[Rfam]
RNA sequence: CUGAGGUGGAGGACUUAGCUCGCUCCGUGAACAGUUCAGUUCAGCCUGUGUUCACAGUGGCUAAGUUCCGCUCCUCAC
Numbered sequence: 001c002u003g004a005g006g007u008g009g010a011g012g013a014c015u016u017a018g019c020u021c022g023c024u025c026c027g028u029g030a031a032c033a034g035u036u037c038a039g040u041u042c043a044g045c046c047u048g049u050g051u052u053c054a055c056a057g058u059g060g061c062u063a064a065g066u067u068c069c070g071c072u073c074c075u076c077a078c
Stems, first nucleotide, its partner, number of pairs: 011068010027055007

A member of the RNA family "mir-27 microRNA precursor family" from Salarias fasciatus, 78 nucleotides long. Taxonomically the source falls in Salarias (Eukaryota, Vertebrata, Teleostei, Blennioidei).